The record is a 103-nucleotide RNA from Pseudogemmobacter blasticus, which matches "TPP riboswitch aptamer (THI element)" in Rfam. NCBI's taxonomy places the organism under Bacteria, Alphaproteobacteria, Rhodobacterales, Pseudogemmobacter, Pseudogemmobacter blasticus.
RNA sequence: ACCGAUACCUCGGGGUGCCUGGCAACAGGCUGAGAUGCAGCGAUGCGGACCCGUUGAACCUGAACCGGAUCAUACCGGCGGAGGGAAGGUGCAUCGGAAUCCU
Numbered sequence: 001a002c003c004g005a006u007a008c009c010u011c012g013g014g015g016u017g018c019c020u021g022g023c024a025a026c027a028g029g030c031u032g033a034g035a036u037g038c039a040g041c042g043a044u045g046c047g048g049a050c051c052c053g054u055u056g057a058a059c060c061u062g063a064a065c066c067g068g069a070u071c072a073u074a075c076c077g078g079c080g081g082a083g084g085g086a087a088g089g090u091g092c093a094u095c096g097g098a099a100u101c102c103u
Stems, first nucleotide, its partner, number of pairs: 006091005011053004016047001017030005037046003059084003065078004
It scores 81 bits against the family's covariance model. Pairs were carried over by alignment from the consensus structure, which is taken from published work.